This 99-nucleotide sequence from Burkholderia sp. TJI49 belongs to the Rfam family "Burkholderia sRNA Bp1_Cand612_SIPHT". By type it is a small RNA. The family's consensus secondary structure was predicted with RNAalifold. Rfam's curators put it in the seed alignment.

[Rfam]
RNA sequence: AAAAAAAAUGGGCGCAACGCCCAUCUUCCCUUACUGCCUGGUCGCACCUGAGCCGCACAUAAAUCCGUACGCCCAGCGACUUUGUGAUUAUAGCGUUUU
Numbered sequence: 001a002a003a004a005a006a007a008a009u010g011g012g013c014g015c016a017a018c019g020c021c022c023a024u025c026u027u028c029c030c031u032u033a034c035u036g037c038c039u040g041g042u043c044g045c046a047c048c049u050g051a052g053c054c055g056c057a058c059a060u061a062a063a064u065c066c067g068u069a070c071g072c073c074c075a076g077c078g079a080c081u082u083u084g085u086g087a088u089u090a091u092a093g094c095g096u097u098u099u
Stems, first nucleotide, its partner, number of pairs: 008024007039090007050082003054078003